RNA sequence: GCAUAGUGUUACCAUCAACAACCUUAACUUUAUUUUUCUUAUUCAAUACCUAGGUAGGUAGAUGCUAGAUUUUGGAAAUAAAAUAUGAGUCUCAAGUGGUCCUUGUCCUCUCUCCCAGUCGAAUUCUGAAUCUAGUUGGCAAGAUUCUGAAAUCAAGGCAUAUAAUCAGUAAUAAGUGAUGAUAGAAGGGUA
Number, nucleotide and partner (000 for none) at each position: 001g000002c000003a000004u000005a000006g000007u000008g000009u000010u000011a000012c000013c000014a000015u000016c000017a000018a000019c000020a000021a000022c189023c188024u187025u186026a000027a000028c000029u000030u182031u181032a180033u179034u178035u000036u000037u000038c176039u175040u174041a173042u172043u171044c000045a000046a000047u060048a059049c058050c057051u056052a000053g000054g000055u000056a051057g050058g049059u048060a047061g000062a161063u160064g159065c158066u157067a000068g120069a119070u118071u117072u000073u000074g115075g114076a113077a000078a000079u000080a000081a000082a000083a000084u000085a000086u000087g112088a111089g110090u000091c000092u000093c105094a104095a103096g102097u000098g000099g000100u000101c000102c096103u095104u094105g093106u000107c000108c000109u000110c089111u088112c087113u076114c075115c074116c000117a071118g070119u069120c068121g000122a000123a000124u151125u150126c149127u000128g147129a146130a145131u144132c143133u142134a000135g000136u000137u000138g000139g000140c000141a000142a133143g132144a131145u130146u129147c128148u000149g126150a125151a124152a000153u000154c000155a000156a000157g066158g065159c064160a063161u062162a000163u000164a000165a000166u000167c000168a000169g000170u000171a043172a042173u041174a040175a039176g038177u000178g034179a033180u032181g031182a030183u000184a000185g000186a025187a024188g023189g022190g000191u000192a000